[Rfam]
RNA sequence: GAAUAUCUUGGGCAAACCUAUCGAAAGAUGGAGACGCAAAGCCAGAGUCUAAAAUUACUAGAAAUAGUAAUCAUGAUCGUUCGGCUGCAUAA
Numbered sequence: 001g002a003a004u005a006u007c008u009u010g011g012g013c014a015a016a017c018c019u020a021u022c023g024a025a026a027g028a029u030g031g032a033g034a035c036g037c038a039a040a041g042c043c044a045g046a047g048u049c050u051a052a053a054a055u056u057a058c059u060a061g062a063a064a065u066a067g068u069a070a071u072c073a074u075g076a077u078c079g080u081u082c083g084g085c086u087g088c089a090u091a092a
Base pairs, nucleotide, nucleotide: 012037013036018031019030020029021028022027040086041085042084043083045082046081047077048076049075054071055070056069057068058067059066060065
RNA: c-di-GMP-I riboswitch aptamer
Organism: Schnuerera ultunensis